The family of this 117-nucleotide sequence is "SAM-I/IV (S-adenosyl methionine) riboswitch aptamer". The family is grouped with related families in Rfam's "SAM clan". It is one of the family's seed sequences.
RNA sequence: CGACGACAUCACGAGCGACCCUCACGGGUCCGGCAACCGGGAUCGCCACUCGGUGCCAUCUCGCCGCGAGGCGGGGAUGUGGUCCCGCGACGGCGGGACAAGGAGGUGACAUGGCGC
Numbered sequence: 001c002g003a004c005g006a007c008a009u010c011a012c013g014a015g016c017g018a019c020c021c022u023c024a025c026g027g028g029u030c031c032g033g034c035a036a037c038c039g040g041g042a043u044c045g046c047c048a049c050u051c052g053g054u055g056c057c058a059u060c061u062c063g064c065c066g067c068g069a070g071g072c073g074g075g076g077a078u079g080u081g082g083u084c085c086c087g088c089g090a091c092g093g094c095g096g097g098a099c100a101a102g103g104a105g106g107u108g109a110c111a112u113g114g115c116g117c
Base pairs, nucleotide, nucleotide: 006080007079008078009077010076015031017030018029019028020027021026032057033056034055037053038052039051040047041046082099083098084097085096086095087094088093